[Rfam]
Small nucleolar RNA ACA64: a 125-nucleotide RNA from Bucco capensis. It is annotated as an H/ACA-box small nucleolar RNA. A reference for the family is Schattner et al. (2006), "A computational screen for mammalian pseudouridylation guide H/ACA RNAs", RNA.
RNA sequence: UUCAAAUAUAAAUCACUUGGGAUCUUCUGUGGCCCCUGGUGCCAUAACUGUGCCCACAGCAGAGGGAGCAUUAAACUCAUUGCCCAUAGGAAAGUGUGGGGAGUGAUACCCAUGUUCCUAGAAUC
Numbered sequence: 001u002u003c004a005a006a007u008a009u010a011a012a013u014c015a016c017u018u019g020g021g022a023u024c025u026u027c028u029g030u031g032g033c034c035c036c037u038g039g040u041g042c043c044a045u046a047a048c049u050g051u052g053c054c055c056a057c058a059g060c061a062g063a064g065g066g067a068g069c070a071u072u073a074a075a076c077u078c079a080u081u082g083c084c085c086a087u088a089g090g091a092a093a094g095u096g097u098g099g100g101g102a103g104u105g106a107u108a109c110c111c112a113u114g115u116u117c118c119u120a121g122a123a124u125c
Stems, first nucleotide, its partner, number of pairs: 005051001009047001010045001014041003021034001023032002065118001067116005077106005085098003
A search with the family's covariance model found it, with a score of 44 bits.